About this RNA:
Rfam assigns this 111-nucleotide sequence from Cannabis sativa to the family "MIR162_1 microRNA precursor family". NCBI's taxonomy places the organism under Eukaryota, Streptophyta, eudicotyledons, fabids, Cannabis. A search with the family's covariance model found it, with a score of 111 bits.

[Rfam]
RNA sequence: GGUGAAGUCACUGGAGGCAGCGGUUCAUCGAUCUCUUCCUGAAAUUUUUUGUGAACAAGAAAACACAGAACAUGAAUCGAUCGAUAAACCUCUGCAUCCAGCGUUCGCUCA
Dot-bracket structure: ............(((..(((.((((.(((((((..(((...................................)))..))))))).)))).)))..)))............